[Rfam]
Overview:
c-di-AMP riboswitch aptamer (ydaO/yuaA leader): a 187-nucleotide RNA sequence from Streptomyces brasiliensis. The match comes from Rfam's covariance-model search (62 bits). NCBI's taxonomy places the organism under Bacteria, Bacillati, Actinomycetes, Kitasatosporales, Streptomyces. The pairing is the family consensus, mapped onto this sequence. Rfam describes the family as follows. This family represents a conserved RNA structure found upstream of the ydaO and yuaA genes in Bacillus subtilis and related genes in other bacteria.
RNA sequence: ACAAACCCAUCGACGAACUCAUUCACGUACGGCAGGAGCGGGGGACCCAGGUAAGCCGCCGGAACGGUACGGCACACGUCGUACCGGAACGGCUCGGGGUGAAGUCGUAUCGCUUUGCGGCGAAACGGCCGGGCACCUCCCCGCCCGAACCCGACAGCUCACCUCGCAGGCGCCGGAGAGGAAGUUC
Numbered sequence: 001a002c003a004a005a006c007c008c009a010u011c012g013a014c015g016a017a018c019u020c021a022u023u024c025a026c027g028u029a030c031g032g033c034a035g036g037a038g039c040g041g042g043g044g045a046c047c048c049a050g051g052u053a054a055g056c057c058g059c060c061g062g063a064a065c066g067g068u069a070c071g072g073c074a075c076a077c078g079u080c081g082u083a084c085c086g087g088a089a090c091g092g093c094u095c096g097g098g099g100u101g102a103a104g105u106c107g108u109a110u111c112g113c114u115u116u117g118c119g120g121c122g123a124a125a126c127g128g129c130c131g132g133g134c135a136c137c138u139c140c141c142c143g144c145c146c147g148a149a150c151c152c153g154a155c156a157g158c159u160c161a162c163c164u165c166g167c168a169g170g171c172g173c174c175g176g177a178g179a180g181g182a183a184g185u186u187c
Base pairs, nucleotide, nucleotide: 011172012171014169019036020035038167039166040165041164042163043162048096097152098151099150105128106127107126108125131146132145133144134143